[Rfam]
RNA sequence: UGGUUUUGCUUCAACAGUGAUUGAACGAGCAUCG
Numbered sequence: 001u002g003g004u005u006u007u008g009c010u011u012c013a014a015c016a017g018u019g020a021u022u023g024a025a026c027g028a029g030c031a032u033c034g
Stems, first nucleotide, its partner, number of pairs: 001034002003030004008026001010025005015019001
Iron response element I: a 34-nucleotide sequence from Hyalomma asiaticum. On this family, see Zhang et al., Insect Mol Biol 2001: "Repression of Manduca sexta ferritin synthesis by IRP1/IRE interaction". The organism belongs to Hyalomma asiaticum, within Eukaryota. It is annotated as a cis-regulatory element.